[Rfam]
RNA sequence: UUGCAUGUAGAAAUAUCUGCUUCUCCUUCCUUUAGGAGCAGGAAUACAUCCAUAAUUCCUUAAAAAGGGAAUUCUUAGCACUGUCAACAUCACACCAGAGGUUGAGUAGGAGUAUAUUUCUCCUACAUUA
Numbered sequence: 001u002u003g004c005a006u007g008u009a010g011a012a013a014u015a016u017c018u019g020c021u022u023c024u025c026c027u028u029c030c031u032u033u034a035g036g037a038g039c040a041g042g043a044a045u046a047c048a049u050c051c052a053u054a055a056u057u058c059c060u061u062a063a064a065a066a067g068g069g070a071a072u073u074c075u076u077a078g079c080a081c082u083g084u085c086a087a088c089a090u091c092a093c094a095c096c097a098g099a100g101g102u103u104g105a106g107u108a109g110g111a112g113u114a115u116a117u118u119u120c121u122c123c124u125a126c127a128u129u130a
Stems, first nucleotide, its partner, number of pairs: 003058001005056002016042008068123003081109001084106001085104004090099002
RNA: Small nucleolar RNA U109
Organism: Orycteropus afer